This 84-nucleotide sequence belongs to the Rfam family "ZMP/ZTP riboswitch aptamer (pfl RNA motif)". The match comes from Rfam's covariance-model search (57 bits).

[Rfam]
Nucleotides: 084
Base pairs, nucleotide, nucleotide: 004052006050007049008048009047010046011045012044015041016040017072018071019070020069021068026037027036028035029034062078063077064076065075
Number, partner (000 for none) and nucleotide at each position: 001000g002000g003000c004052c005000c006050g007049g008048g009047c010046c011045g012044u013000g014000a015041c016040u017072g018071g019070c020069g021068c022000u023000g024000a025000g026037g027036u028035g029034g030000a031000g032000c033000a034029c035028c036027a037026c038000c039000g040016g041015g042000g043000a044012g045011c046010g047009g048008c049007c050006c051000c052004g053000c054000g055000g056000a057000g058000c059000a060000g061000a062078u063077g064076c065075c066000g067000u068021g069020c070019g071018c072017c073000u074000g075065g076064g077063c078062g079000a080000a081000c082000c083000g084000a